[Rfam]
The record is a 73-nucleotide sequence from Phytophthora rubi, which matches "tRNA" in Rfam. Pairs were carried over by alignment from the consensus structure, which is taken from published work. Transfer RNA (tRNA) molecules are approximately 80 nucleotides in length. Lineage of the source: Eukaryota > Sar > Stramenopiles > Peronosporaceae > Phytophthora.
RNA sequence: UCCCAUAUAGUCUAGGCGGUUAGGAUAGCUGGCUCUCACCCAGCAGACCCGGGUUCGAGUCCCGAUGUGGGAA
Numbered sequence: 001u002c003c004c005a006u007a008u009a010g011u012c013u014a015g016g017c018g019g020u021u022a023g024g025a026u027a028g029c030u031g032g033c034u035c036u037c038a039c040c041c042a043g044c045a046g047a048c049c050c051g052g053g054u055u056c057g058a059g060u061c062c063c064g065a066u067g068u069g070g071g072a073a
Stems, first nucleotide, its partner, number of pairs: 001072007010026004028044005050064004